Rfam assigns this 76-nucleotide RNA sequence from Myotis myotis to the family "mir-9223 microRNA precursor family".

RNA sequence: AGCAGUUCUUGGGUGAUGCACCCAGGAAUUGGGCUCCCUCCUCUCUAUUUCUGGAGUGUGUCAUCUGAGAACUGCC
Numbered sequence: 001a002g003c004a005g006u007u008c009u010u011g012g013g014u015g016a017u018g019c020a021c022c023c024a025g026g027a028a029u030u031g032g033g034c035u036c037c038c039u040c041c042u043c044u045c046u047a048u049u050u051c052u053g054g055a056g057u058g059u060g061u062c063a064u065c066u067g068a069g070a071a072c073u074g075c076c
Stems, first nucleotide, its partner, number of pairs: 002075002005072013019058003023054001025052004030047004
NCBI's taxonomy places the organism under Eukaryota, Opisthokonta, Eumetazoa, Laurasiatheria, Myotis. Pairs were carried over by alignment from the consensus structure, which was predicted with RNAalifold.